[Rfam]
RNA sequence: CCAGGUAAGUCGCCGCACCGGUCACCACCGGAGCGGCUCGGGGUGAAGCCGUACCCGUCAGGGCACGGCCGGGCACCUCCCCGCCCGAACCCGACAGCUCACCUCGCAGGCGUAAGGAGAGGGA
Numbered sequence: 001c002c003a004g005g006u007a008a009g010u011c012g013c014c015g016c017a018c019c020g021g022u023c024a025c026c027a028c029c030g031g032a033g034c035g036g037c038u039c040g041g042g043g044u045g046a047a048g049c050c051g052u053a054c055c056c057g058u059c060a061g062g063g064c065a066c067g068g069c070c071g072g073g074c075a076c077c078u079c080c081c082c083g084c085c086c087g088a089a090c091c092c093g094a095c096a097g098c099u100c101a102c103c104u105c106g107c108a109g110g111c112g113u114a115a116g117g118a119g120a121g122g123g124a
Stems, first nucleotide, its partner, number of pairs: 011112004020025001029106003033102001034040002041092003049068004071086004

c-di-AMP riboswitch aptamer (ydaO/yuaA leader): a 124-nucleotide RNA sequence from Streptomyces coelicolor.
The pairing is the family consensus, mapped onto this sequence.
For this family Rfam cites "New RNA motifs suggest an expanded scope for riboswitches in bacterial genetic control" (Barrick et al., Proc Natl Acad Sci U S A, 2004).
The source organism's lineage runs through Bacteria, Actinomycetota, Actinomycetes, Kitasatosporales and Streptomyces.